[Rfam]
RNA sequence: GCCGGGCGUUGUGGCGAGCGCUUGUAAUCCAAGUGACUGGGAGGCAGGCGAUGGUGGAUGGAGUGAGAGAGGGAGUCCUGGCUGUUGCUUGGCAGUGGAGACCGAGCGUCCAGGCCAAGCGUGGCGUCAACAAGGCAUCGUGGCAGGAGUGUCAUUCGGUACCUGGUUGCAUAAUGAGGGGCAUACGGCUCAGGGCCGAAAGGCAGCAGGCAAAAGUCCCCGCGUCAUGACAGUGGCCGGAUAGCGCUUGCGAGCCGUCGGCAUCAGCCAGCCCUGUCAAUACCUCCAGACCCAUCGCUUU
Numbered sequence: 001g002c003c004g005g006g007c008g009u010u011g012u013g014g015c016g017a018g019c020g021c022u023u024g025u026a027a028u029c030c031a032a033g034u035g036a037c038u039g040g041g042a043g044g045c046a047g048g049c050g051a052u053g054g055u056g057g058a059u060g061g062a063g064u065g066a067g068a069g070a071g072g073g074a075g076u077c078c079u080g081g082c083u084g085u086u087g088c089u090u091g092g093c094a095g096u097g098g099a100g101a102c103c104g105a106g107c108g109u110c111c112a113g114g115c116c117a118a119g120c121g122u123g124g125c126g127u128c129a130a131c132a133a134g135g136c137a138u139c140g141u142g143g144c145a146g147g148a149g150u151g152u153c154a155u156u157c158g159g160u161a162c163c164u165g166g167u168u169g170c171a172u173a174a175u176g177a178g179g180g181g182c183a184u185a186c187g188g189c190u191c192a193g194g195g196c197c198g199a200a201a202g203g204c205a206g207c208a209g210g211c212a213a214a215a216g217u218c219c220c221c222g223c224g225u226c227a228u229g230a231c232a233g234u235g236g237c238c239g240g241a242u243a244g245c246g247c248u249u250g251c252g253a254g255c256c257g258u259c260g261g262c263a264u265c266a267g268c269c270a271g272c273c274c275u276g277u278c279a280a281u282a283c284c285u286c287c288a289g290a291c292c293c294a295u296c297g298c299u300u301u
Stems, first nucleotide, its partner, number of pairs: 001045003004023007028042003047299008059288005067278002070275004078271007086263004092258002095255002103250007110240002113238005119231001120229008128169004133164003137160004141154005170176002178220005188211003195204003